Shown here is an 81-nucleotide RNA from Takifugu flavidus, a member of the family "mir-26 microRNA precursor family". Pairs were carried over by alignment from the consensus structure, which was predicted with RNAalifold. Rfam links the family to the GO terms miRNA-mediated post-transcriptional gene silencing and RISC complex. The source organism's lineage runs through Eukaryota, Chordata, Euteleostomi, Acanthomorphata and Takifugu.
RNA sequence: CUGUCAUCCAGUUCAAGUAAUCCAGGAUAGGCUGUGUGUAUGCCGGUUGGCCUGUUCGUGAUUACUUGCACUGGACGGCAG
Numbered sequence: 001c002u003g004u005c006a007u008c009c010a011g012u013u014c015a016a017g018u019a020a021u022c023c024a025g026g027a028u029a030g031g032c033u034g035u036g037u038g039u040a041u042g043c044c045g046g047u048u049g050g051c052c053u054g055u056u057c058g059u060g061a062u063u064a065c066u067u068g069c070a071c072u073g074g075a076c077g078g079c080a081g
Stems, first nucleotide, its partner, number of pairs: 002080004007075006014068009025057009